[Rfam]
Nucleotides: 127
Stems, first nucleotide, its partner, number of pairs: 015118007022110001032104002037099004044054002061092005
Number, partner (000 for none) and nucleotide at each position: 001000g002000a003000a004000g005000u006000u007000c008000a009000a010000a011000a012000g013000a014000g015118g016117g017116a018115a019114g020113g021112g022110u023000g024000a025000g026000a027000a028000a029000u030000c031000u032104c033103g034000u035000g036000g037099u038098u039097c040096g041000a042000g043000c044054c045053g046000a047000g048000c049000g050000a051000a052000g053045c054044g055000a056000g057000a058000c059000a060000a061092c062091g063090u064089u065088g066000c067000u068000u069000u070000c071000u072000u073000u074000a075000a076000a077000u078000a079000a080000g081000a082000g083000u084000a085000c086000g087000a088065c089064g090063a091062c092061g093000g094000c095000c096040c097039g098038a099037a100000g101000g102000g103033c104032g105000c106000a107000g108000u109000a110022a111000c112021c113020c114019c115018u116017u117016c118015c119000u120000c121000a122000c123000c124000g125000c126000u127000a

Rfam assigns this 127-nucleotide RNA sequence from Litoribrevibacter albus to the family "RtT RNA".
The family's RNA type in Rfam is cis-regulatory element.
The family's consensus secondary structure is taken from published work.
Rfam describes the family as follows. This family represents a bacterial cis-regulatory element known as RtT RNA. The exact function of RtT is unknown although it is thought that it may be involved in changing the cellular response in relation to amino acid starvation.
The source organism's lineage runs through Bacteria, Pseudomonadati, Oceanospirillales, Oceanospirillaceae and Litoribrevibacter.